[Rfam]
RNA sequence: AACUUUCUAAAUCUGUGUCGAAAUUUCGUUAGAUACCAGGCCACCAAGACUGGUGAGGCUUUCAAGAAAUGUGAAGUG
Numbered sequence: 001a002a003c004u005u006u007c008u009a010a011a012u013c014u015g016u017g018u019c020g021a022a023a024u025u026u027c028g029u030u031a032g033a034u035a036c037c038a039g040g041c042c043a044c045c046a047a048g049a050c051u052g053g054u055g056a057g058g059c060u061u062u063c064a065a066g067a068a069a070u071g072u073g074a075a076g077u078g
Base pairs, nucleotide, nucleotide: 002077003076004075005074006073008071009070012067013066016064017063020061021060024058025057026056027055028054029053030052

This 78-nucleotide RNA from Schistosoma japonicum belongs to the Rfam family "mir-3492 microRNA precursor family". Its family is annotated with miRNA-mediated post-transcriptional gene silencing and RISC complex in the Gene Ontology. The family has 2 seed sequences and 21,496 matches in Rfam 15.1.